[Rfam]
RNA sequence: ACAAUGCGCCCCGUCAUUGGGGAGUAGCCUCCCGUCCGCGCGACGGGGCUUGCGUCAACAUACUCGGCCAGCCGGCCGUGGCGCAGGCAGGUUCCCGUGCUUGGCAAGACCUUUGACCACAGCGCCUCCAUCCGUGGCCGGGGAGGCGUCGUGGUCAUGCGUCCGUGAUCCGGCCCGGGAGUACC
Numbered sequence: 001a002c003a004a005u006g007c008g009c010c011c012c013g014u015c016a017u018u019g020g021g022g023a024g025u026a027g028c029c030u031c032c033c034g035u036c037c038g039c040g041c042g043a044c045g046g047g048g049c050u051u052g053c054g055u056c057a058a059c060a061u062a063c064u065c066g067g068c069c070a071g072c073c074g075g076c077c078g079u080g081g082c083g084c085a086g087g088c089a090g091g092u093u094c095c096c097g098u099g100c101u102u103g104g105c106a107a108g109a110c111c112u113u114u115g116a117c118c119a120c121a122g123c124g125c126c127u128c129c130a131u132c133c134g135u136g137g138c139c140g141g142g143g144a145g146g147c148g149u150c151g152u153g154g155u156c157a158u159g160c161g162u163c164c165g166u167g168a169u170c171c172g173g174c175c176c177g178g179g180a181g182u183a184c185c
Base pairs, nucleotide, nucleotide: 032046033045034044048088049087050086051085052084053083054082055081056080057079065078066077067076068075069074090184093180094179095178096177
RNA: Manganese Mn2+ riboswitch aptamer (yybP-ykoY)
Organism: Thermomonas haemolytica